[Rfam]
The record is an 86-nucleotide RNA sequence from Cynoglossus semilaevis, which matches "Small nucleolar RNA SNORD60" in Rfam. The literature on the family includes a 2002 paper in Mol Cell Biol by Galardi et al., "Purified box C/D snoRNPs are able to reproduce site-specific 2'-O-methylation of target RNA in vitro". It is annotated as a C/D-box small nucleolar RNA. Gene Ontology terms of the family: nucleolus and RNA processing. NCBI's taxonomy places the organism under Eukaryota, Deuterostomia, Vertebrata, Teleostei, Cynoglossus.
RNA sequence: AGCCAGUGAUGACAAACUUAAAUAUUUCUGACACCUACUAUGAGCGCUGACCUUCAGCCACUGAUUCUCUCUUUGUCCUGAGGCCU
Numbered sequence: 001a002g003c004c005a006g007u008g009a010u011g012a013c014a015a016a017c018u019u020a021a022a023u024a025u026u027u028c029u030g031a032c033a034c035c036u037a038c039u040a041u042g043a044g045c046g047c048u049g050a051c052c053u054u055c056a057g058c059c060a061c062u063g064a065u066u067c068u069c070u071c072u073u074u075g076u077c078c079u080g081a082g083g084c085c086u
Base pairs, nucleotide, nucleotide: 002084003083004082046058047057048056049055050054